[Rfam]
RNA sequence: UCAAUCGUUCUCUAGGGUUCCGCGAAAGAUGAUAUUUCAGUCGGUCAGGUCCAAGAGAGAACGCACAGCUGAGCUGUGUACACGGAGGGAUAAAAGCCCGGGAGGA
Numbered sequence: 001u002c003a004a005u006c007g008u009u010c011u012c013u014a015g016g017g018u019u020c021c022g023c024g025a026a027a028g029a030u031g032a033u034a035u036u037u038c039a040g041u042c043g044g045u046c047a048g049g050u051c052c053a054a055g056a057g058a059g060a061a062c063g064c065a066c067a068g069c070u071g072a073g074c075u076g077u078g079u080a081c082a083c084g085g086a087g088g089g090a091u092a093a094a095a096g097c098c099c100g101g102g103a104g105g106a
Base pairs, nucleotide, nucleotide: 007062008061009060010059011058012057015052016051020049021048022046023043024042025041028038063079064078065077066076067075068074069073081101083104087099088098089097
RNA: Guanidine-I riboswitch aptamer